[Rfam]
RNA sequence: GCUCAGCUGAUCUGUGAUGGUUCACGGUGCAAGCUUCAAACUUGUAGGUGGUGAAAACCACAGCAGUUCGAUUCUGCCUGCUGAGC
Numbered sequence: 001g002c003u004c005a006g007c008u009g010a011u012c013u014g015u016g017a018u019g020g021u022u023c024a025c026g027g028u029g030c031a032a033g034c035u036u037c038a039a040a041c042u043u044g045u046a047g048g049u050g051g052u053g054a055a056a057a058c059c060a061c062a063g064c065a066g067u068u069c070g071a072u073u074c075u076g077c078c079u080g081c082u083g084a085g086c
Stems, first nucleotide, its partner, number of pairs: 001086007009078001012027006028046006048061005063077004
RNA: Selenocysteine transfer RNA